The record is a 65-nucleotide RNA from Frankliniella occidentalis, which matches "mir-14 microRNA precursor family" in Rfam. Rfam links the family to the GO terms miRNA-mediated post-transcriptional gene silencing and RISC complex.
[Rfam]
Nucleotides: 065
Stems, first nucleotide, its partner, number of pairs: 003063001005061004010056004015051007025043003029039001
Number, partner (000 for none) and nucleotide at each position: 001000c002000u003063u004000c005061g006060g007059g008058g009000a010056g011055a012054g013053a014000u015051a016050a017049g018048g019047g020046c021045u022000u023000u024000g025043g026042c027041u028000c029039g030000a031000u032000u033000u034000u035000a036000a037000a038000g039029u040000c041027a042026g043025u044000c045021a046020g047019u048018c049017u050016u051015u052000u053013u054012c055011u056010c057000u058008c059007u060006c061005c062000u063003a064000u065000a